[Rfam]
RNA sequence: GCACCGUAUUUCGAAUUACCCAUGAUGGGUAAUACCAACCGAGUGUAGUCACCACGGUGGUCAAAUAAUACGGGAGCCAUCCAAAAUAAACGUGCAUCA
Numbered sequence: 001g002c003a004c005c006g007u008a009u010u011u012c013g014a015a016u017u018a019c020c021c022a023u024g025a026u027g028g029g030u031a032a033u034a035c036c037a038a039c040c041g042a043g044u045g046u047a048g049u050c051a052c053c054a055c056g057g058u059g060g061u062c063a064a065a066u067a068a069u070a071c072g073g074g075a076g077c078c079a080u081c082c083a084a085a086a087u088a089a090a091c092g093u094g095c096a097u098c099a
Stems, first nucleotide, its partner, number of pairs: 006071005015033008034061003039057003043052002048093002073082003
Dot-bracket structure: .....(((((....((((((((...))))))))(((..(((.((...[[.))..))).))).....))))).(((....))).........]]......
The family of this 99-nucleotide sequence from Parabacteroides sp. PM6-13 is "SAM-I/IV (S-adenosyl methionine) riboswitch aptamer". On this family, see Weinberg et al., RNA 2008: "The aptamer core of SAM-IV riboswitches mimics the ligand-binding site of SAM-I riboswitches".